The record is a 41-nucleotide sequence from Ornithinibacillus bavariensis, which matches "Ribosomal protein L19 leader" in Rfam. A search with the family's covariance model found it, with a score of 43 bits. Rfam describes the family as follows. This family is a putative r-protein leader autoregulatory structure found in B. subtilis and other low-GC Gram-positive bacteria. It is located in the 5' untranslated regions of mRNAs encoding ribosomal protein L19 (rplS). Rfam links the family to the GO term regulation of gene expression. NCBI's taxonomy places the organism under Bacteria, Bacillati, Bacillota, Bacillaceae, Ornithinibacillus. The base pairs follow the family's consensus structure, which was predicted with CMfinder. For this family Rfam cites "Diverse mechanisms for regulating ribosomal protein synthesis in Escherichia coli" (Zengel and Lindahl, Prog Nucleic Acid Res Mol Biol, 1994).
RNA sequence: ACGAUGUUCCGCUGUUACAUAACGUGUAAUAAGAGCAUUGG
Numbered sequence: 001a002c003g004a005u006g007u008u009c010c011g012c013u014g015u016u017a018c019a020u021a022a023c024g025u026g027u028a029a030u031a032a033g034a035g036c037a038u039u040g041g
Stems, first nucleotide, its partner, number of pairs: 003039007013031006